A member of the RNA family "S15-Flavobacteria ribosomal protein leader" from Flavobacterium sp. URHB0058, 67 nucleotides long. On this family, see Eckert and Weinberg, BMC Microbiol 2020: "Discovery of 20 novel ribosomal leader candidates in bacteria and archaea". Rfam classes the family as a cis-regulatory leader.
RNA sequence: UAUUUUUGCACCCGUCUUACAAAAGUUGUAAAGACAUACAUAAAAAUCAUUAAAUAAUAUUGGAAUG
Numbered sequence: 001u002a003u004u005u006u007u008g009c010a011c012c013c014g015u016c017u018u019a020c021a022a023a024a025g026u027u028g029u030a031a032a033g034a035c036a037u038a039c040a041u042a043a044a045a046a047u048c049a050u051u052a053a054a055u056a057a058u059a060u061u062g063g064a065a066u067g
Stems, first nucleotide, its partner, number of pairs: 014035004018030004